This 90-nucleotide sequence from Artemisia annua belongs to the Rfam family "mir-156 microRNA precursor family". On this family, see Ambros, Cell 2001: "microRNAs: tiny regulators with great potential". This family represents the plant microRNA (miRNA) precursor mir-156. Taxonomically the source falls in Artemisia (Eukaryota, Euphyllophyta, Mesangiospermae, Asteroideae).
RNA sequence: GUGACAGAAGAGAGUGAGCACCCAUGGUCUUCUUGCAAAUAAUCCGUGUCAUAUGCUUGAAGCUAUGUGUGCUCACGCUCUAUCUGUCAC
Numbered sequence: 001g002u003g004a005c006a007g008a009a010g011a012g013a014g015u016g017a018g019c020a021c022c023c024a025u026g027g028u029c030u031u032c033u034u035g036c037a038a039a040u041a042a043u044c045c046g047u048g049u050c051a052u053a054u055g056c057u058u059g060a061a062g063c064u065a066u067g068u069g070u071g072c073u074c075a076c077g078c079u080c081u082a083u084c085u086g087u088c089a090c
Base pairs, nucleotide, nucleotide: 001090002089003088004087005086006085007084008083010080011079012078014076015075016074017073018072019071020070021069023067024066025065